[Rfam]
RNA sequence: GUAGGGAAGCUCAUCAGUGGGGCUCGGAGCUGAGUGCGCUUAGUCACUCUAUCCCAUGUCCCUUGAGAAGGUCUGAGACUAGGGCCUAGAGCAGCCCUAACAGGGCCUUCCCUGAGCUUCCGGGAGGUGAGUUCCCAGAGAACCGGGCUCCGCGAGCGCAGACUGGGCAGGAGAUGCCAUGGACCCCGCCCUUGCGGAGGGGCCUGGUGGACGCCUCCUCAGCCGGAGCUUGGAACAGACUCACGGCCAGCGAAGUGGGUUCAGUGGCUGAGGGGAGGAACCCAGCGUGGGGACCUCCUAACCCAAUUCAGACUACUCCCGUCUGU
Numbered sequence: 001g002u003a004g005g006g007a008a009g010c011u012c013a014u015c016a017g018u019g020g021g022g023c024u025c026g027g028a029g030c031u032g033a034g035u036g037c038g039c040u041u042a043g044u045c046a047c048u049c050u051a052u053c054c055c056a057u058g059u060c061c062c063u064u065g066a067g068a069a070g071g072u073c074u075g076a077g078a079c080u081a082g083g084g085c086c087u088a089g090a091g092c093a094g095c096c097c098u099a100a101c102a103g104g105g106c107c108u109u110c111c112c113u114g115a116g117c118u119u120c121c122g123g124g125a126g127g128u129g130a131g132u133u134c135c136c137a138g139a140g141a142a143c144c145g146g147g148c149u150c151c152g153c154g155a156g157c158g159c160a161g162a163c164u165g166g167g168c169a170g171g172a173g174a175u176g177c178c179a180u181g182g183a184c185c186c187c188g189c190c191c192u193u194g195c196g197g198a199g200g201g202g203c204c205u206g207g208u209g210g211a212c213g214c215c216u217c218c219u220c221a222g223c224c225g226g227a228g229c230u231u232g233g234a235a236c237a238g239a240c241u242c243a244c245g246g247c248c249a250g251c252g253a254a255g256u257g258g259g260u261u262c263a264g265u266g267g268c269u270g271a272g273g274g275g276a277g278g279a280a281c282c283c284a285g286c287g288u289g290g291g292g293a294c295c296u297c298c299u300a301a302c303c304c305a306a307u308u309c310a311g312a313c314u315a316c317u318c319c320c321g322u323c324u325g326u
Stems, first nucleotide, its partner, number of pairs: 001323001005320002010272004015267001019063004032049005037043001073311005083248004094106004108126005127244007147229006273299006